[Rfam]
A member of the RNA family "mir-172 microRNA precursor family" from Acer saccharum, 119 nucleotides long. For this family Rfam cites "Computational Identification of Plant MicroRNAs and Their Targets, Including a Stress-Induced miRNA" (Jones-Rhoades and Bartel, Mol Cell, 2004).
RNA sequence: UCAAUCGCCAAUGCAGCAUCAUCAAGAUUCACAAGCCAAACAAUUUAAGAAAUCUUUUUGAUAAAUUACAUAAGUUCAAUUUUGCAUGUGAAUCUUGUUGGUGCUGCAUCAGCAAACAA
Numbered sequence: 001u002c003a004a005u006c007g008c009c010a011a012u013g014c015a016g017c018a019u020c021a022u023c024a025a026g027a028u029u030c031a032c033a034a035g036c037c038a039a040a041c042a043a044u045u046u047a048a049g050a051a052a053u054c055u056u057u058u059u060g061a062u063a064a065a066u067u068a069c070a071u072a073a074g075u076u077c078a079a080u081u082u083u084g085c086a087u088g089u090g091a092a093u094c095u096u097g098u099u100g101g102u103g104c105u106g107c108a109u110c111a112g113c114a115a116a117c118a119a
Stems, first nucleotide, its partner, number of pairs: 011109011023097008032088002
Taxonomically the source falls in Acer (Eukaryota, Embryophyta, Mesangiospermae, Sapindales).